[Rfam]
RNA: Group II catalytic intron D1-D4-1
RNA sequence: CUACCGUCACCGUAAGGUGUCGGGACGGGCCGGCAGAAGUCAGCAGAGGCCGUAGUAGCCGGAGUAACCACCCGGCAAAGGGC
Numbered sequence: 001c002u003a004c005c006g007u008c009a010c011c012g013u014a015a016g017g018u019g020u021c022g023g024g025a026c027g028g029g030c031c032g033g034c035a036g037a038a039g040u041c042a043g044c045a046g047a048g049g050c051c052g053u054a055g056u057a058g059c060c061g062g063a064g065u066a067a068c069c070a071c072c073c074g075g076c077a078a079a080g081g082g083c
Stems, first nucleotide, its partner, number of pairs: 001027001004023003008019004040047002049083003058076005